[Rfam]
RNA sequence: AAAAAAGGAAGUUCGAUGAAGGGCGUCACGUUUGUGAGACCAUCGAACUGACCUGCUUCGCAGG
Numbered sequence: 001a002a003a004a005a006a007g008g009a010a011g012u013u014c015g016a017u018g019a020a021g022g023g024c025g026u027c028a029c030g031u032u033u034g035u036g037a038g039a040c041c042a043u044c045g046a047a048c049u050g051a052c053c054u055g056c057u058u059c060g061c062a063g064g
Stems, first nucleotide, its partner, number of pairs: 011048007026037004052064005

Rfam assigns this 64-nucleotide sequence from Marinococcus luteus to the family "Bacillaceae-1 RNA". Rfam 15.1 lists 5,721 matches to the family in 247 species. The base pairs follow the family's consensus structure, which is taken from published work. The family's RNA type in Rfam is small RNA.